[Rfam]
RNA sequence: UAUUGAGAUAGAGGUGCGGAGCUUAUCAGUACAUACUCGAGCGGGAGCUAUGACAGUAUGGAAAGGAAUAUUCGCCGAAAUAUUUUAACCCCAAGUUGAAAUAUUGGGCAUAAACAAAAUAUGUUUAUGACUGUCACUUAUGCUAGUGAUGCGCUAUCCUAUGA
Numbered sequence: 001u002a003u004u005g006a007g008a009u010a011g012a013g014g015u016g017c018g019g020a021g022c023u024u025a026u027c028a029g030u031a032c033a034u035a036c037u038c039g040a041g042c043g044g045g046a047g048c049u050a051u052g053a054c055a056g057u058a059u060g061g062a063a064a065g066g067a068a069u070a071u072u073c074g075c076c077g078a079a080a081u082a083u084u085u086u087a088a089c090c091c092c093a094a095g096u097u098g099a100a101a102u103a104u105u106g107g108g109c110a111u112a113a114a115c116a117a118a119a120u121a122u123g124u125u126u127a128u129g130a131c132u133g134u135c136a137c138u139u140a141u142g143c144u145a146g147u148g149a150u151g152c153g154c155u156a157u158c159c160u161a162u163g164a
Stems, first nucleotide, its partner, number of pairs: 007158005016075005023068002032060006039054001079105011106132002109129008134149005
Rfam assigns this 164-nucleotide RNA sequence from Aerococcus sp. HMSC10H05 to the family "Lysine riboswitch aptamer".
For this family Rfam cites "Riboswitches Control Fundamental Biochemical Pathways in Bacillus subtilis and Other Bacteria" (Mandal et al., Cell, 2003).
The organism belongs to Aerococcus, within Bacteria.